RNA sequence: UGUGCUGAGGAGCGCUGCAACGGUUUUCCGUGAGGCUCAGCAUAUGUGGCUAUUAUUACAACGGCGCUCGUUCAUA
Numbered sequence: 001u002g003u004g005c006u007g008a009g010g011a012g013c014g015c016u017g018c019a020a021c022g023g024u025u026u027u028c029c030g031u032g033a034g035g036c037u038c039a040g041c042a043u044a045u046g047u048g049g050c051u052a053u054u055a056u057u058a059c060a061a062c063g064g065c066g067c068u069c070g071u072u073c074a075u076a
Stems, first nucleotide, its partner, number of pairs: 002043007021030003

Shown here is a 76-nucleotide sequence from Nitrosomonas sp. Nm166, a member of the family "SAH (S-adenosyl-L-homocysteine) riboswitch aptamer".
NCBI's taxonomy places the organism under Bacteria, Pseudomonadati, Pseudomonadota, Nitrosomonadaceae, Nitrosomonas.
The match comes from Rfam's covariance-model search (60 bits).